[Rfam]
RNA sequence: AAGCAAGGGCGCAUGGCGGAUGCCUUGGCUCUCGGAGGCGAUGAAGGACGUGAUAAGCUGCGAUAAGCUUCGGGUAGGUGCAAAUAACCUUUGAUCCGAAGAUUUCCGAAUGGGACAACCCGUCAUUCUGAAGGAAUGACAUCUUGCAUGGCAAGAGGCUAACGCAGGGAACUGAAACAUCUUAGUACCUGUAGGAAAAGAAAAUAAUAAUGAUUCCCCAAGUAGUGGCGAGCGAACGGGGAUUAGCCCAAACCAAUGUUGUUACGGCAAUAUUGGGGUUGUAGGACCACGAUGUCGCAAGAAAUUUAGUGAGAAGAACCCUUUGGAAAAUGGGACCAUAGACGGUGAUAGUCCGGUAUUCGAAGCUAAACGAAGCGUAGUGGUAUCCUGAGUAGCGCGGGACACGAGAAAUCUUGCGUGAAUCAGCCGGGACCAUCCGGUAAGGCUAAAUACUCCCGAGAGACCGAUAGCGAACCAGUACUGUGAAGGAAAGGUGAAAAGCACUUCGAACAGAAGAGUGAAAUAGUCCCUGAAACCGUGCGCCUACAAG
Numbered sequence: 001a002a003g004c005a006a007g008g009g010c011g012c013a014u015g016g017c018g019g020a021u022g023c024c025u026u027g028g029c030u031c032u033c034g035g036a037g038g039c040g041a042u043g044a045a046g047g048a049c050g051u052g053a054u055a056a057g058c059u060g061c062g063a064u065a066a067g068c069u070u071c072g073g074g075u076a077g078g079u080g081c082a083a084a085u086a087a088c089c090u091u092u093g094a095u096c097c098g099a100a101g102a103u104u105u106c107c108g109a110a111u112g113g114g115a116c117a118a119c120c121c122g123u124c125a126u127u128c129u130g131a132a133g134g135a136a137u138g139a140c141a142u143c144u145u146g147c148a149u150g151g152c153a154a155g156a157g158g159c160u161a162a163c164g165c166a167g168g169g170a171a172c173u174g175a176a177a178c179a180u181c182u183u184a185g186u187a188c189c190u191g192u193a194g195g196a197a198a199a200g201a202a203a204a205u206a207a208u209a210a211u212g213a214u215u216c217c218c219c220a221a222g223u224a225g226u227g228g229c230g231a232g233c234g235a236a237c238g239g240g241g242a243u244u245a246g247c248c249c250a251a252a253c254c255a256a257u258g259u260u261g262u263u264a265c266g267g268c269a270a271u272a273u274u275g276g277g278g279u280u281g282u283a284g285g286a287c288c289a290c291g292a293u294g295u296c297g298c299a300a301g302a303a304a305u306u307u308a309g310u311g312a313g314a315a316g317a318a319c320c321c322u323u324u325g326g327a328a329a330a331u332g333g334g335a336c337c338a339u340a341g342a343c344g345g346u347g348a349u350a351g352u353c354c355g356g357u358a359u360u361c362g363a364a365g366c367u368a369a370a371c372g373a374a375g376c377g378u379a380g381u382g383g384u385a386u387c388c389u390g391a392g393u394a395g396c397g398c399g400g401g402a403c404a405c406g407a408g409a410a411a412u413c414u415u416g417c418g419u420g421a422a423u424c425a426g427c428c429g430g431g432a433c434c435a436u437c438c439g440g441u442a443a444g445g446c447u448a449a450a451u452a453c454u455c456c457c458g459a460g461a462g463a464c465c466g467a468u469a470g471c472g473a474a475c476c477a478g479u480a481c482u483g484u485g486a487a488g489g490a491a492a493g494g495u496g497a498a499a500a501g502c503a504c505u506u507c508g509a510a511c512a513g514a515a516g517a518g519u520g521a522a523a524u525a526g527u528c529c530c531u532g533a534a535a536c537c538g539u540g541c542g543c544c545u546a547c548a549a550g
Stems, first nucleotide, its partner, number of pairs: 007545010022530001023494002027465002029462007036454002038159002046107003049062003068101007077089003112121003122140007142156006163194001164192005174181002204211002214450001215242005225233002245447004253276007283389003287383004305370006313361003319334003323330001337341001343355003395419008426441005481488002504516004